[Rfam]
The family of this 80-nucleotide RNA sequence from Bombyx mori is "mir-2807 microRNA precursor family". A reference for the family is Liu et al. (2010), "MicroRNAs of Bombyx mori identified by Solexa sequencing", BMC Genomics.

RNA sequence: UUAAUUUAAAUUUGUAUGCAGUUGCAACAUCGCCCCUAGCGGCGUAAGCACACGUUCCAACUUCAUACAAAUUUGAGUUA
Numbered sequence: 001u002u003a004a005u006u007u008a009a010a011u012u013u014g015u016a017u018g019c020a021g022u023u024g025c026a027a028c029a030u031c032g033c034c035c036c037u038a039g040c041g042g043c044g045u046a047a048g049c050a051c052a053c054g055u056u057c058c059a060a061c062u063u064c065a066u067a068c069a070a071a072u073u074u075g076a077g078u079u080a
Base pairs, nucleotide, nucleotide: 008074009073010072011071012070013069014068015067016066018064020062021061022060023059024058026056027055028054034048039043